[Rfam]
RNA sequence: GUGAUCUCCGGAAGCAGUGACCGCGACGGACGAACCUCGGGCGCCUGCCCGCCGCGAGAGCUCAUGGCGCAACCGACCGGAGCCUGC
Numbered sequence: 001g002u003g004a005u006c007u008c009c010g011g012a013a014g015c016a017g018u019g020a021c022c023g024c025g026a027c028g029g030a031c032g033a034a035c036c037u038c039g040g041g042c043g044c045c046u047g048c049c050c051g052c053c054g055c056g057a058g059a060g061c062u063c064a065u066g067g068c069g070c071a072a073c074c075g076a077c078c079g080g081a082g083c084c085u086g087c
Base pairs, nucleotide, nucleotide: 001087002086003085006082007081008080009079010078011077013062014061015060022056023055024054025053027051028050029049039074040073041070042069043068044067045066
Rfam assigns this 87-nucleotide sequence from Deinococcus yavapaiensis to the family "c-di-GMP-II-GAG riboswitch aptamer". It scores 49 bits against the family's covariance model. A reference for the family is Weinberg et al. (2017), "Bioinformatic analysis of riboswitch structures uncovers variant classes with altered ligand specificity", Proc Natl Acad Sci U S A. The family is grouped with related families in Rfam's "c-di-GMP_II riboswitch clan".